[Rfam]
RNA sequence: UGGCUCUAGCCAAAUCAGAUAGCUGAGAGAAGUUAAGUGACUAGUUUUUGUGAAAUCCCUUUGAUAUACAUCAACUAAUCUGCUUACCAAAUUUUUGACAUUG
Numbered sequence: 001u002g003g004c005u006c007u008a009g010c011c012a013a014a015u016c017a018g019a020u021a022g023c024u025g026a027g028a029g030a031a032g033u034u035a036a037g038u039g040a041c042u043a044g045u046u047u048u049u050g051u052g053a054a055a056u057c058c059c060u061u062u063g064a065u066a067u068a069c070a071u072c073a074a075c076u077a078a079u080c081u082g083c084u085u086a087c088c089a090a091a092u093u094u095u096u097g098a099c100a101u102u103g
Stems, first nucleotide, its partner, number of pairs: 028096007039084001041082001044079003048074003
RNA: Small nucleolar RNA snoR109
Organism: Carya illinoinensis